[Rfam]
Nucleotides: 379
Base pairs, nucleotide, nucleotide: 001375002374003373004372005371006370007369008368009367010366012322013321014320015319016318017317018316020046021045023043024042025041026040027039028038051363052362053361055360056359057358058357059356060225061224062223063222067258068257069256070255072221073220074219075218076217077091078090079089080088081087092106093104094103095102096101107216108215113214114213115210116209117208130155131154132151133150134149135148136147137146138145139144163181164180165179166178167177168176183205184203185202186201187200188199189198190197191196229279230278231277232276238270239269240268241267242266243265250262251261252260253259286305287304288303289302290301291300292299293298
Number, partner (000 for none) and nucleotide at each position: 001375u002374g003373g004372g005371u006370c007369g008368u009367u010366c011000a012322g013321a014320c015319g016318g017317u018316c019000g020046c021045g022000u023043c024042g025041g026040u027039c028038u029000u030000c031000g032000u033000g034000u035000c036000g037000a038028a039027g040026g041025c042024c043023g044000c045021c046020g047000a048000g049000g050000a051363a052362c053361g054000u055360c056359c057358g058357g059356g060225c061224u062223c063222c064000a065000c066000a067258g068257g069256g070255c071000a072221a073220g074219a075218c076217g077091g078090u079089g080088g081087g082000u083000a084000a085000c086000g087081c088080c089079c090078a091077c092106c093104c094103g095102g096101g097000g098000u099000g100000a101096c102095c103094c104093g105000c106092g107216g108215g109000a110000a111000a112000a113214g114213u115210g116209c117208c118000a119000c120000a121000g122000a123000a124000a125000a126000c127000a128000a129000a130155c131154c132151g133150c134149c135148g136147g137146c138145c139144c140000g141000u142000a143000c144139g145138g146137g147136c148135c149134g150133g151132u152000a153000a154131g155130g156000g157000u158000g159000a160000a161000a162000c163181g164180g165179u166178g167177g168176u169000g170000u171000a172000a173000g174000a175000g176168a177167c178166c179165a180164c181163c182000a183205g184203c185202g186201g187200g188199c189198c190197a191196g192000g193000c194000g195000a196191c197190u198189g199188g200187u201186c202185c203184g204000g205183c206000u207000c208117g209116g210115u211000a212000a213114a214113c215108c216107c217076c218075g219074u220073c221072u222063g223062g224061a225060g226000c227000a228000a229279g230278g231277u232276c233000g234000g235000a236000c237000a238270g239269g240268c241267g242266a243265c244000g245000a246000u247000u248000g249000a250262g251261g252260g253259c254000u255070g256069c257068c258067c259253g260252c261251c262250c263000g264000a265243g266242u267241c268240g269239c270238c271000g272000g273000g274000u275000g276232g277231a278230c279229u280000g281000c282000u283000g284000g285000a286305a287304c288303g289302u290301g291300c292299g293298g294000g295000c296000a297000a298293c299292c300291g301290u302289a303288c304287g305286u306000c307000g308000a309000g310000a311000u312000a313000g314000a315000u316018g317017a318016c319015c320014g321013u322012c323000g324000c325000c326000c327000g328000a329000g330000u331000c332000g333000g334000g335000u336000a337000a338000c339000c340000g341000c342000a343000c344000u345000u346000g347000g348000g349000a350000a351000c352000a353000g354000g355000a356059c357058c358057c359056g360055g361053c362052g363051u364000a365000c366010g367009a368008g369007c370006g371005g372004c373003c374002c375001a376000u377000c378000c379000g